[Rfam]
RNA sequence: AAAAAGGAAAGCUAGGGUUCCGGUGGCAUAGUGCCACGACUGGUCCAAGAGCUUUCGACCUGUUUAAGCCUGCGCACACCCAUUUUUGAGCAGUUUCUUAAGAGGUUACACGGCGGGAUAAAAGCCCGGGAGGC
Numbered sequence: 001a002a003a004a005a006g007g008a009a010a011g012c013u014a015g016g017g018u019u020c021c022g023g024u025g026g027c028a029u030a031g032u033g034c035c036a037c038g039a040c041u042g043g044u045c046c047a048a049g050a051g052c053u054u055u056c057g058a059c060c061u062g063u064u065u066a067a068g069c070c071u072g073c074g075c076a077c078a079c080c081c082a083u084u085u086u087u088g089a090g091c092a093g094u095u096u097c098u099u100a101a102g103a104g105g106u107u108a109c110a111c112g113g114c115g116g117g118a119u120a121a122a123a124g125c126c127c128g129g130g131a132g133g134c
Stems, first nucleotide, its partner, number of pairs: 007056006015046002020043002022040001023037006057107005063101002109129001111132001115127003
RNA: Guanidine-I riboswitch aptamer
Organism: Alteromonadaceae bacterium Bs31